This 105-nucleotide sequence from Pseudopedobacter sp. belongs to the Rfam family "SAM riboswitch aptamer (S box leader)". A search with the family's covariance model found it, with a score of 72 bits. Lineage of the source: Bacteria > Pseudomonadati > Sphingobacteriales > Sphingobacteriaceae > Pseudopedobacter.
[Rfam]
RNA sequence: UGCUUAUAGAGAAAGACGGAGGGAUUAGACCCUGCGAAGUCUUAGCAACCUGUGCAAACAAGGUGCUACAUUCUAUCCAAAUUUUACGUUUGGAAAAGAUAAGUG
Number, nucleotide and partner (000 for none) at each position: 001u105002g104003c103004u102005u101006a100007u099008a000009g000010a000011g000012a000013a043014a042015g041016a040017c039018g000019g000020a000021g032022g031023g030024a000025u000026u075027a074028g073029a072030c023031c022032c021033u000034g000035c000036g000037a000038a000039g017040u016041c015042u014043u013044a067045g066046c065047a064048a000049c063050c062051u060052g059053u058054g000055c000056a000057a000058a053059c052060a051061a000062g050063g049064u047065g046066c045067u044068a000069c000070a000071u097072u029073c028074u027075a026076u094077c093078c092079a091080a090081a089082u000083u000084u000085u000086a000087c000088g000089u081090u080091u079092g078093g077094a076095a000096a000097a071098g000099a007100u006101a005102a004103g003104u002105g001